[Rfam]
RNA sequence: GCAAACUGAAUAUGUCUUUUUCGUAUAACCUUAAUAAUCGGAUUAAGGGUCUCUACUUAGAAACCGUAAAUUUCUAGCUACGAAAAAAUAUGCUCGCCAG
Numbered sequence: 001g002c003a004a005a006c007u008g009a010a011u012a013u014g015u016c017u018u019u020u021u022c023g024u025a026u027a028a029c030c031u032u033a034a035u036a037a038u039c040g041g042a043u044u045a046a047g048g049g050u051c052u053c054u055a056c057u058u059a060g061a062a063a064c065c066g067u068a069a070a071u072u073u074c075u076a077g078c079u080a081c082g083a084a085a086a087a088a089u090a091u092g093c094u095c096g097c098c099a100g
Stems, first nucleotide, its partner, number of pairs: 018086008029048007057077007
Dot-bracket structure: .................((((((((...(((((((......)))))))........(((((((.......))))))).))))))))..............
Rfam assigns this 100-nucleotide RNA from Paenibacillus methanolicus to the family "Purine riboswitch aptamer". The family's consensus secondary structure is taken from published work. Rfam describes the family as follows. Riboswitches are metabolite binding domains within certain messenger RNAs that serve as precision sensors for their corresponding targets. It scores 70 bits against the family's covariance model. Rfam links the family to the GO term purine nucleobase biosynthetic process.